[Rfam]
RNA sequence: AAAAAGGGCUUCUGUCAUGAGUGGCAUGUGGGGGCAUGAGUGACAUGUGGGGCAACUCAACUGCUCUUCAUGCGGAAUCAACAUCAAGAGAUUUUGGAAGCAUAAUUUUUUGGUACCUGAGAAGCUGGUGAUCAUUGGUCCUGGUGCAUGA
Numbered sequence: 001a002a003a004a005a006g007g008g009c010u011u012c013u014g015u016c017a018u019g020a021g022u023g024g025c026a027u028g029u030g031g032g033g034g035c036a037u038g039a040g041u042g043a044c045a046u047g048u049g050g051g052g053c054a055a056c057u058c059a060a061c062u063g064c065u066c067u068u069c070a071u072g073c074g075g076a077a078u079c080a081a082c083a084u085c086a087a088g089a090g091a092u093u094u095u096g097g098a099a100g101c102a103u104a105a106u107u108u109u110u111u112g113g114u115a116c117c118u119g120a121g122a123a124g125c126u127g128g129u130g131a132u133c134a135u136u137g138g139u140c141c142u143g144g145u146g147c148a149u150g151a
Stems, first nucleotide, its partner, number of pairs: 008101005013043001016040001044072004049067006073096007119149001121147001124145005130140004
RNA: U11 spliceosomal RNA